Description
This 101-nucleotide RNA belongs to the Rfam family "Termite-flg RNA". Rfam's curators put it in the seed alignment. It is annotated as a cis-regulatory element.
[Rfam]
RNA sequence: AACCGUUUCGUUCUGUAUGCGGAUAAAGAAAAUGGUUGCGCGAAACCAUUUUUGGCAGACGCUUCCACGGGACGGCUCCGGCACGGAUGGCCGGGGUAAAU
Numbered sequence: 001a002a003c004c005g006u007u008u009c010g011u012u013c014u015g016u017a018u019g020c021g022g023a024u025a026a027a028g029a030a031a032a033u034g035g036u037u038g039c040g041c042g043a044a045a046c047c048a049u050u051u052u053u054g055g056c057a058g059a060c061g062c063u064u065c066c067a068c069g070g071g072a073c074g075g076c077u078c079c080g081g082c083a084c085g086g087a088u089g090g091c092c093g094g095g096g097u098a099a100a101u
Stems, first nucleotide, its partner, number of pairs: 009074008019062003028053010075097008